[Rfam]
RNA: mir-9/mir-79 microRNA precursor family
Organism: Oryctes borbonicus
RNA sequence: GAAUAUUCUUCUUUGGUGAACUAGCUAUAUGAGUAUUUUAAGAUCAUAAAGCUAUCUUACUAAAGAAAAAUGUAC
Numbered sequence: 001g002a003a004u005a006u007u008c009u010u011c012u013u014u015g016g017u018g019a020a021c022u023a024g025c026u027a028u029a030u031g032a033g034u035a036u037u038u039u040a041a042g043a044u045c046a047u048a049a050a051g052c053u054a055u056c057u058u059a060c061u062a063a064a065g066a067a068a069a070a071u072g073u074a075c
Base pairs, nucleotide, nucleotide: 001075003073004072005071007069009067010066011065012064013063014062015061016060017059018058019057022054023053024052025051026050028048029047030046031045032044
Dot-bracket structure: (.(((.(.(((((((((((..(((((.(((((...........))))).)))))..))))))))))).).))).)